Rfam assigns this 45-nucleotide RNA sequence from Fluviicoccus keumensis to the family "Guanidine-II riboswitch aptamer (mini-ykkC)". Simpler in structure and has fewer highly conserved nucleotide positions than the ykkC-yxkD leader. The source organism's lineage runs through Bacteria, Gammaproteobacteria, Moraxellales, Moraxellaceae and Fluviicoccus.
[Rfam]
Nucleotides: 045
Stems, first nucleotide, its partner, number of pairs: 001020002004017005034045004
Number, partner (000 for none) and nucleotide at each position: 001020c002019g003000c004017c005016c006015g007014g008013g009000a010000c011000g012000a013008c014007c015006c016005g017004g018000a019002c020001g021000c022000g023000g024000c025000g026000a027000u028000u029000c030000a031000c032000c033000g034045c035044g036043g037042g038000a039000c040000g041000g042037c043036c044035c045034g

The family's consensus secondary structure is taken from published work. The match comes from Rfam's covariance-model search (41 bits). Gene Ontology term of the family: regulation of gene expression.